[Rfam]
The record is a 483-nucleotide sequence from Formicarius rufipectus, which matches "Vertebrate telomerase RNA" in Rfam. Rfam classes the family as a non-coding RNA gene.
RNA sequence: UGUGGGCCGUGUGGGGAGCGCCCCUGCUCACUAACCCUAAUGGCGCCCGCGCUCCCCGCGCCCGCCCGCUGUUUUACUCGCUGACUUUCAGCGGGCGAGGGGAGCGGCCUGGGGAGGGUGGCGGGGAGGGAGGGAGACGCAGGAGAAAGGAGGUCCGCUGUUAAAAAAACAAACAAACAAAAAACGUCAGCGAGGGGGCUCCUCACCCCGGCCUGCCCUGGGGUCCCCCCCACACCAGCCCGCAUCCCGGGGCGCUCCCGCCGCCGCGCCGCGCAGAGGCCGCGGUCGGCCGGCCCAGCGCCACUGCCGCCGCGAAGAGCUCGUCUCUGUCAGCCUCGGCGGCGGCCGGGGGCACAGGGGCGAUCCCCCCGCCCCGGGGCAGCCGCGGGACCCCAGCAGAGCAAAACGGGAGCGGCGCCGCCGGGCGGAGCAGCCGCGGCUCCCUCAGCCGUGGGGUGCGCGGCCGGCGCCGCCCCGACACCC
Numbered sequence: 001u002g003u004g005g006g007c008c009g010u011g012u013g014g015g016g017a018g019c020g021c022c023c024c025u026g027c028u029c030a031c032u033a034a035c036c037c038u039a040a041u042g043g044c045g046c047c048c049g050c051g052c053u054c055c056c057c058g059c060g061c062c063c064g065c066c067c068g069c070u071g072u073u074u075u076a077c078u079c080g081c082u083g084a085c086u087u088u089c090a091g092c093g094g095g096c097g098a099g100g101g102g103a104g105c106g107g108c109c110u111g112g113g114g115a116g117g118g119u120g121g122c123g124g125g126g127a128g129g130g131a132g133g134g135a136g137a138c139g140c141a142g143g144a145g146a147a148a149g150g151a152g153g154u155c156c157g158c159u160g161u162u163a164a165a166a167a168a169a170c171a172a173a174c175a176a177a178c179a180a181a182a183a184a185c186g187u188c189a190g191c192g193a194g195g196g197g198g199c200u201c202c203u204c205a206c207c208c209c210g211g212c213c214u215g216c217c218c219u220g221g222g223g224u225c226c227c228c229c230c231c232a233c234a235c236c237a238g239c240c241c242g243c244a245u246c247c248c249g250g251g252g253c254g255c256u257c258c259c260g261c262c263g264c265c266g267c268g269c270c271g272c273g274c275a276g277a278g279g280c281c282g283c284g285g286u287c288g289g290c291c292g293g294c295c296c297a298g299c300g301c302c303a304c305u306g307c308c309g310c311c312g313c314g315a316a317g318a319g320c321u322c323g324u325c326u327c328u329g330u331c332a333g334c335c336u337c338g339g340c341g342g343c344g345g346c347c348g349g350g351g352g353c354a355c356a357g358g359g360g361c362g363a364u365c366c367c368c369c370c371g372c373c374c375c376g377g378g379g380c381a382g383c384c385g386c387g388g389g390a391c392c393c394c395a396g397c398a399g400a401g402c403a404a405a406a407c408g409g410g411a412g413c414g415g416c417g418c419c420g421c422c423g424g425g426c427g428g429a430g431c432a433g434c435c436g437c438g439g440c441u442c443c444c445u446c447a448g449c450c451g452u453g454g455g456g457u458g459c460g461c462g463g464c465c466g467g468c469g470c471c472g473c474c475c476c477g478a479c480a481c482c483c
Stems, first nucleotide, its partner, number of pairs: 002216008011206006018199002021196002051105005063097009080191006086184003218396007249366003253362005260353003264349003268343005281314005287309004292302003316328004410475001412473008434463005441456004
NCBI's taxonomy places the organism under Eukaryota, Teleostomi, Archosauria, Neoaves, Formicarius. Its family is annotated with telomerase catalytic core complex, telomerase activity and telomere maintenance via telomerase in the Gene Ontology.